[Rfam]
RNA: RNA anti-toxin A
Organism: Streptococcus hillyeri
RNA sequence: UACUAUAGACAGAAAAAGAGCUGGUUUGCAGACCAGCUCCAAUGUAGAACCGUUUAAGACGGUGGCUCGUAAUUACUAUUAAAGA
Numbered sequence: 001u002a003c004u005a006u007a008g009a010c011a012g013a014a015a016a017a018g019a020g021c022u023g024g025u026u027u028g029c030a031g032a033c034c035a036g037c038u039c040c041a042a043u044g045u046a047g048a049a050c051c052g053u054u055u056a057a058g059a060c061g062g063u064g065g066c067u068c069g070u071a072a073u074u075a076c077u078a079u080u081a082a083a084g085a
Stems, first nucleotide, its partner, number of pairs: 022035004049063006